[Rfam]
Annotation:
This 81-nucleotide sequence from Dipodomys ordii belongs to the Rfam family "Small nucleolar RNA SNORD121A". The family has 26 seed sequences and 881 matches in Rfam 15.1.
RNA sequence: GUCCAGAAAACAGUGAUGUGAUCAUUUCCAAGCACAUAUCUGAUGAUUCUAUGUAGAAUUUAAGUACUGAGUUUCCUGGAC
Numbered sequence: 001g002u003c004c005a006g007a008a009a010a011c012a013g014u015g016a017u018g019u020g021a022u023c024a025u026u027u028c029c030a031a032g033c034a035c036a037u038a039u040c041u042g043a044u045g046a047u048u049c050u051a052u053g054u055a056g057a058a059u060u061u062a063a064g065u066a067c068u069g070a071g072u073u074u075c076c077u078g079g080a081c
Base pairs, nucleotide, nucleotide: 001081002080003079004078005077006076008074009073010072011071

Record summary: It is annotated as a C/D-box small nucleolar RNA. The base pairs follow the family's consensus structure, which was predicted with WAR. A reference for the family is Yang et al. (2006), "snoSeeker: an advanced computational package for screening of guide and orphan snoRNA genes in the human genome", Nucleic Acids Res. Taxonomically the source falls in Dipodomys (Eukaryota, Amniota, Boreoeutheria, Rodentia).